Source information:
This 102-nucleotide RNA from Stakelama pacifica belongs to the Rfam family "Repression of heat shock gene expression (ROSE) element". A search with the family's covariance model found it, with a score of 51 bits.
RNA sequence: CCGGACGCUGGAAACCGGGUCCGGUUGGACAUUGAGAGCGUCGGCUCUCUCCGGCGCAUCUCAUGCCCAGAUUGCUUCAUAAGGAGGAUUUGGAGAUGAGAA
Numbered sequence: 001c002c003g004g005a006c007g008c009u010g011g012a013a014a015c016c017g018g019g020u021c022c023g024g025u026u027g028g029a030c031a032u033u034g035a036g037a038g039c040g041u042c043g044g045c046u047c048u049c050u051c052c053g054g055c056g057c058a059u060c061u062c063a064u065g066c067c068c069a070g071a072u073u074g075c076u077u078c079a080u081a082a083g084g085a086g087g088a089u090u091u092g093g094a095g096a097u098g099a100g101a102a
Stems, first nucleotide, its partner, number of pairs: 001024006008018002035059001038057007060100005067093007075086003
Its family is annotated with regulation of translation and response to temperature stimulus in the Gene Ontology.
The family's consensus secondary structure is taken from published work.
This family represents a 5' UTR cis-regulatory element found in heat shock mRNAs and is known as the ROSE (repression of heat shock gene expression) element. The ROSE element is a negative regulator of heat shock gene expression. The secondary structure is thought to be regulated by temperature.